[Rfam]
RNA sequence: CACUCCUGUUUCUGCCUCACUGUCUGCUUGGACGAUAUACUGCUCCAGGCGAUAGACUGCUGGGUUCUAAUUAUGGAGAAGAAGAAGCCAGUGGAUUGCUCCUUAGUCGCCUUUGAUACAACAGACUUUGUGGGUUCUAAAUCUGCUGGAUCGUGAGAUUUUGCGGUAUUCCGAUGCGGACGCUCGCUUUUCAGUGCAAUCGUCCCAACAUGGGUAUCGUGCUCUACAUUU
Number, nucleotide and partner (000 for none) at each position: 001c000002a000003c078004u077005c076006c075007u000008g000009u000010u000011u000012c000013u000014g000015c000016c064017u063018c062019a061020c059021u000022g057023u056024c055025u054026g000027c000028u000029u000030g000031g000032a000033c000034g000035a000036u000037a000038u000039a000040c000041u000042g000043c000044u000045c000046c000047a000048g000049g000050c000051g000052a000053u000054a025055g024056a023057c022058u000059g020060c000061u019062g018063g017064g016065u000066u000067c000068u000069a000070a000071u000072u000073a000074u000075g006076g005077a004078g003079a000080a000081g000082a000083a000084g000085a000086a000087g000088c149089c148090a147091g146092u145093g144094g143095a142096u141097u140098g137099c000100u134101c133102c132103u000104u000105a127106g126107u125108c124109g000110c000111c000112u000113u000114u000115g000116a000117u000118a000119c000120a000121a000122c000123a000124g108125a107126c106127u105128u000129u000130g000131u000132g102133g101134g100135u000136u000137c098138u000139a000140a097141a096142u095143c094144u093145g092146c091147u090148g089149g088150a000151u000152c000153g000154u000155g224156a223157g222158a000159u000160u000161u000162u000163g000164c219165g218166g000167u000168a000169u000170u000171c000172c000173g000174a000175u213176g000177c000178g000179g209180a000181c000182g206183c000184u000185c202186g201187c000188u199189u198190u000191u000192c000193a000194g000195u000196g000197c000198a189199a188200u000201c186202g185203u000204c000205c000206c182207a000208a000209c179210a000211u000212g000213g175214g000215u000216a000217u000218c165219g164220u000221g000222c157223u156224c155225u000226a000227c000228a000229u000230u000231u000
The record is a 231-nucleotide RNA sequence from Huiozyma naganishii, which matches "Small nucleolar RNA snR43" in Rfam. The family is grouped with related families in Rfam's "SNORA9 clan". The literature on the family includes a 1996 paper in Cell by Balakin et al., "The RNA world of the nucleolus: two major families of small RNAs defined by different box elements with related functions". Pairs were carried over by alignment from the consensus structure, which is taken from published work. Its family is annotated with nucleolus and RNA processing in the Gene Ontology. NCBI's taxonomy places the organism under Eukaryota, Ascomycota, saccharomyceta, Saccharomycetales, Huiozyma naganishii.